The record is a 308-nucleotide sequence from Brachypteracias leptosomus, which matches "7SK RNA" in Rfam.
Rfam classes the family as a non-coding RNA gene.
Pairs were carried over by alignment from the consensus structure, which is taken from published work.
NCBI's taxonomy places the organism under Eukaryota, Deuterostomia, Tetrapoda, Saurischia, Brachypteracias.
A reference for the family is Blencowe (2002), "Transcription: surprising role for an elusive small nuclear RNA", Curr Biol.
About the family: 7SK was discovered as an abundant small nuclear RNA in the mid-70s but a possible function has only recently been suggested. Two independent studies have found that 7SK RNA binds the CDK9/cyclin T complex (known as elongation factor P-TEFb). P-TEFb activates transcription by phosphorylating the C-terminal domain of RNA polymerase II. This process is negatively regulated by the 7SK RNP. The secondary structure of 7SK RNA shown here was proposed by Wasserman and Steitz on the basis of chemical modification and enzymatic cleavage experiments.
RNA sequence: GGAUGUGAGGGUGAUCUGGUUGUGAGAUCUGUCACCCCAGGGUUCAUUCGACUGAUCUGGCUGGCUAGGUGAGUGUUCCCUUCCUCAUUGCUCCAUAUGCAUCCCUCCUGAGCUGUGUGCUCAGUCAAAGAGGACAGCCUUCCCCAGUAGGGGUGUACUGUUCAUUGGUCAAAGGUAUAUGGUAGCUGUGCUCCCCUGCUAGAACCUUUGAACAAGCUCAAGGUCCAUUUGCAGGAGAAUGGUAGUCAAGCUUCCAAUACUGCAGACGCAUCCAAGUGAAGCACUGCAUGGGACGGUCUGACAUUGUU
Numbered sequence: 001g002g003a004u005g006u007g008a009g010g011g012u013g014a015u016c017u018g019g020u021u022g023u024g025a026g027a028u029c030u031g032u033c034a035c036c037c038c039a040g041g042g043u044u045c046a047u048u049c050g051a052c053u054g055a056u057c058u059g060g061c062u063g064g065c066u067a068g069g070u071g072a073g074u075g076u077u078c079c080c081u082u083c084c085u086c087a088u089u090g091c092u093c094c095a096u097a098u099g100c101a102u103c104c105c106u107c108c109u110g111a112g113c114u115g116u117g118u119g120c121u122c123a124g125u126c127a128a129a130g131a132g133g134a135c136a137g138c139c140u141u142c143c144c145c146a147g148u149a150g151g152g153g154u155g156u157a158c159u160g161u162u163c164a165u166u167g168g169u170c171a172a173a174g175g176u177a178u179a180u181g182g183u184a185g186c187u188g189u190g191c192u193c194c195c196c197u198g199c200u201a202g203a204a205c206c207u208u209u210g211a212a213c214a215a216g217c218u219c220a221a222g223g224u225c226c227a228u229u230u231g232c233a234g235g236a237g238a239a240u241g242g243u244a245g246u247c248a249a250g251c252u253u254c255c256a257a258u259a260c261u262g263c264a265g266a267c268g269c270a271u272c273c274a275a276g277u278g279a280a281g282c283a284c285u286g287c288a289u290g291g292g293a294c295g296g297u298c299u300g301a302c303a304u305u306g307u308u
Base pairs, nucleotide, nucleotide: 001094002093003092005088006087007086008085009084010083011082018080019079024077025076027074028073030071031070032069033068035064036063037060038059039058042057044055045054047051103155104153105152106151107150108124109123110122111121112120113119125147132143133142134141185251186250187249191245192244194242195241197239199237207236208235209234213231214230215229216228275308276307278304282300283297284296285295286294